[Rfam]
RNA: SAM riboswitch aptamer (S box leader)
Organism: Ornithinibacillus caprae
RNA sequence: CUCUUAUCUAGAGCGGUGGAGGGAAAGGCCCUGUGAAACCGCGGCAACCAUCAAACUUUUUUGUUUGGUAAAGGUGCCAAUUCCUACAAAGCGGAUUUGCUUUGAAAGAUGAGAG
Number, nucleotide and partner (000 for none) at each position: 001c115002u114003c113004u112005u111006a110007u109008c108009u000010a000011g000012a000013g042014c041015g040016g039017u038018g000019g000020a000021g031022g030023g029024a000025a000026a085027g084028g083029c023030c022031c021032u000033g000034u000035g000036a000037a000038a017039c016040c015041g014042c013043g078044g077045c076046a075047a000048c074049c073050a069051u068052c067053a066054a065055a064056c000057u000058u000059u000060u000061u000062u000063g000064u055065u054066u053067g052068g051069u050070a000071a000072a000073g049074g048075u046076g045077c044078c043079a000080a000081u000082u107083c028084c027085u026086a000087c104088a103089a102090a101091g100092c099093g000094g000095a000096u000097u000098u000099g092100c091101u090102u089103u088104g087105a000106a000107a082108g008109a007110u006111g005112a004113g003114a002115g001